The family of this 125-nucleotide RNA sequence from Filibacter tadaridae is "PyrR binding site". The family's consensus secondary structure is taken from published work. Rfam's curators write: This family represents the PyrR binding site and terminator structure. This RNA structure is found upstream of a variety of genes involved in pyrimidine biosynthesis and transport. The alignment also includes a portion of the antiterminator structure. Taxonomically the source falls in Filibacter (Bacteria, Bacillota, Bacilli, Caryophanaceae).
[Rfam]
RNA sequence: AAGACCUUUUAACACUGUCCAGAGAGACAAGGAAAGGUUCGUUUGACACCCAUUCUCCCAUAGAGGAGAAUCUGGAUAGUCAUACCCCACGAGCCUUUCCACUUGCUGGAAAGGCUUUUGUUCAU
Numbered sequence: 001a002a003g004a005c006c007u008u009u010u011a012a013c014a015c016u017g018u019c020c021a022g023a024g025a026g027a028c029a030a031g032g033a034a035a036g037g038u039u040c041g042u043u044u045g046a047c048a049c050c051c052a053u054u055c056u057c058c059c060a061u062a063g064a065g066g067a068g069a070a071u072c073u074g075g076a077u078a079g080u081c082a083u084a085c086c087c088c089a090c091g092a093g094c095c096u097u098u099c100c101a102c103u104u105g106c107u108g109g110a111a112a113g114g115c116u117u118u119u120g121u122u123c124a125u
Base pairs, nucleotide, nucleotide: 003039004038005037006036007035008034009033016029017028018027019026046077049074052071053070054069055068056067057066058065088120089119091117092116093115094114095113096112097111098110099109100108101107